[Rfam]
Rfam assigns this 68-nucleotide RNA sequence to the family "RAGATH-18 RNA".

RNA sequence: CUUGUGGACUGUUAUACCAAACGAGAGUAGUUAUUGAUAUAAUGAAAUCGGACAGGUUGAAGCAAGAA
Number, nucleotide and partner (000 for none) at each position: 001c066002u065003u064004g063005u062006g000007g000008a000009c055010u054011g053012u052013u051014a000015u000016a000017c000018c000019a000020a000021a000022c050023g049024a048025g000026a000027g000028u000029a000030g043031u042032u041033a038034u000035u000036g000037a000038u033039a000040u000041a032042a031043u030044g000045a000046a000047a000048u024049c023050g022051g013052a012053c011054a010055g009056g000057u000058u000059g000060a000061a000062g005063c004064a003065a002066g001067a000068a000

Actinobacteria, Firmicutes, Fusobacteria, Thermotogae (1 example). The family's RNA type in Rfam is small RNA. It is one of the family's seed sequences.